[Rfam]
A member of the RNA family "Burkholderia RNA 7 (anti-hemB)" from Niveibacterium umoris, 84 nucleotides long. The literature on the family includes a 2007 paper in Nucleic Acids Res by Weinberg et al., "Identification of 22 candidate structured RNAs in bacteria using the CMfinder comparative genomics pipeline". A search with the family's covariance model found it, with a score of 55 bits. The family's RNA type in Rfam is small RNA. The family has 26 seed sequences and 479 matches in Rfam 15.1. Rfam describes the family as follows. This RNA motif was identified by computational search in b-proteobacteria Burkholderia.
RNA sequence: UCUCCCGCUUCACCUCCCUGAGCGGGGCCUCUUACCAGGCGUUCUACCCCCGGCCCUCUUCCCCUUCCGCCGGGGGUUUUUCUU
Numbered sequence: 001u002c003u004c005c006c007g008c009u010u011c012a013c014c015u016c017c018c019u020g021a022g023c024g025g026g027g028c029c030u031c032u033u034a035c036c037a038g039g040c041g042u043u044c045u046a047c048c049c050c051c052g053g054c055c056c057u058c059u060u061c062c063c064c065u066u067c068c069g070c071c072g073g074g075g076g077u078u079u080u081u082c083u084u
Base pairs, nucleotide, nucleotide: 004026005025006024007023008022009021027040028039029038030037047076048075049074050073051072052071053070054069